[Rfam]
Nucleotides: 053
Stems, first nucleotide, its partner, number of pairs: 016045007025036004
Number, partner (000 for none) and nucleotide at each position: 001000a002000a003000a004000c005000a006000a007000a008000g009000a010000g011000a012000u013000c014000g015000a016045c017044a018043c019042u020041a021040g022039u023000c024000a025036g026035c027034g028033a029000g030000g031000c032000u033028u034027c035026g036025c037000c038000c039022a040021c041020u042019a043018g044017u045016g046000c047000g048000a049000u050000u051000a052000c053000u